[Rfam]
RNA: Small nucleolar RNA SNORD70
Organism: Leptosomus discolor
RNA sequence: UUGCCUGUUGUCAAUGAUGGAUUCUUGCUGAAGCUGAAUAUAGCUGAUUUGAGUCAUUGUUUCGUCACUACCACUGAGACAACAGACUG
Numbered sequence: 001u002u003g004c005c006u007g008u009u010g011u012c013a014a015u016g017a018u019g020g021a022u023u024c025u026u027g028c029u030g031a032a033g034c035u036g037a038a039u040a041u042a043g044c045u046g047a048u049u050u051g052a053g054u055c056a057u058u059g060u061u062u063c064g065u066c067a068c069u070a071c072c073a074c075u076g077a078g079a080c081a082a083c084a085g086a087c088u089g
Stems, first nucleotide, its partner, number of pairs: 001089001003087001005085008